[Rfam]
A member of the RNA family "6S / SsrS RNA" from Mariprofundus erugo, 177 nucleotides long.
The organism belongs to Mariprofundus, within Bacteria.
Pairs were carried over by alignment from the consensus structure, which is taken from published work.
Rfam classes the family as a non-coding RNA gene.
RNA sequence: GCGCCCCUGCGUUGAGCAAAUGGCAUUCAUGUUGCCUGAGCCGAUACUUGUCGAACGGGAGCCCCGCUACUCCGGUUGUGUGCGUCCCUGCAGAGGGAUACCUUUUACCGGAGUGCAGCGCCCACCUCUUGUUAGAGGGUUCGACAACGCAGUGCCACACCUCAACGCGGGGGCGCC
Dot-bracket structure: .(((((((((((((((...............(((..((((((..............(((.((..((...(((((((.....(..(((.......)))...).....)))))))))..)).)))..............)))))).)))............).))))))))))))))..
From the family's description: E. coli 6S RNA was the first non coding RNA to be sequenced, but its function was unknown until recently. For this family Rfam cites "A highly conserved 6S RNA structure is required for regulation of transcription" (Trotochaud and Wassarman, Nat Struct Mol Biol, 2005). The match comes from Rfam's covariance-model search (53 bits).